[Rfam]
RNA sequence: GCUUGUUUUCGGGGUAAGGUGAAAUUCCUAAACCGGCAGUUAUAGUCUGCGAGCCAUCUUGGUUGAAUUGGUGAAAUUCCAAUACCGACAGUAUAGUCUGGAUGAGAGAAGUAUAUA
Numbered sequence: 001g002c003u004u005g006u007u008u009u010c011g012g013g014g015u016a017a018g019g020u021g022a023a024a025u026u027c028c029u030a031a032a033c034c035g036g037c038a039g040u041u042a043u044a045g046u047c048u049g050c051g052a053g054c055c056a057u058c059u060u061g062g063u064u065g066a067a068u069u070g071g072u073g074a075a076a077u078u079c080c081a082a083u084a085c086c087g088a089c090a091g092u093a094u095a096g097u098c099u100g101g102a103u104g105a106g107a108g109a110a111g112u113a114u115a116u117a
Stems, first nucleotide, its partner, number of pairs: 003115001007111004017029003032097002034087002036050004045085002053063003067083005089100003
RNA: FMN riboswitch aptamer (RFN element)